[Rfam]
RNA sequence: AAGCCAUGAUGAGGGCAUUGGUUGGUGUAACCCUUGAAACGCUCCCAUGCUUCACAGAAGCUUUCACCAGCCUUCUAUAAAAAGACAGAGAACUCAUUUCUGGCGUU
Numbered sequence: 001a002a003g004c005c006a007u008g009a010u011g012a013g014g015g016c017a018u019u020g021g022u023u024g025g026u027g028u029a030a031c032c033c034u035u036g037a038a039a040c041g042c043u044c045c046c047a048u049g050c051u052u053c054a055c056a057g058a059a060g061c062u063u064u065c066a067c068c069a070g071c072c073u074u075c076u077a078u079a080a081a082a083a084g085a086c087a088g089a090g091a092a093c094u095c096a097u098u099u100c101u102g103g104c105g106u107u
Base pairs, nucleotide, nucleotide: 001107005102006101057074058073060071
Annotation
Plant small nucleolar RNA R71: a 107-nucleotide sequence. Rfam classes the family as a C/D-box small nucleolar RNA. The base pairs follow the family's consensus structure, which was predicted with PFOLD. On this family, see Brown et al., Trends Plant Sci 2003: "Plant snoRNAs: functional evolution and new modes of gene expression".